[Rfam]
RNA sequence: UGAAGGCAGCAGCACAGAAGUAACGGUGGUAAUACUAUACCAUGCCUCCCUUACUUCUGUGCUGCUGCCUUCA
Number, nucleotide and partner (000 for none) at each position: 001u073002g072003a071004a000005g069006g068007c067008a066009g065010c064011a063012g062013c061014a060015c059016a000017g056018a000019a055020g054021u053022a052023a051024c000025g049026g048027u000028g000029g000030u000031a000032a000033u000034a000035c000036u000037a000038u000039a000040c000041c000042a000043u000044g000045c000046c000047u000048c026049c025050c000051u023052u022053a021054c020055u019056u017057c000058u000059g015060u014061g013062c012063u011064g010065c009066u008067g007068c006069c005070u000071u003072c002073a001
The record is a 73-nucleotide RNA from Platysternon megacephalum, which matches "mir-16 microRNA precursor family" in Rfam.
Taxonomically the source falls in Platysternon (Eukaryota, Vertebrata, Teleostomi, Sauria).
Clan: mir-15 clan.